[Rfam]
RNA: Flavo-1 RNA
RNA sequence: CAAUAGCCCCGAUAGAAGUGGAAAUCUCCCGAUUUUUCAUCGGGAGAUUACAGCGAAUAGCGGGAAAUAAG
Dot-bracket structure: ........(((.((...((...((((.((((((.....)))))).))))...))...)).)))........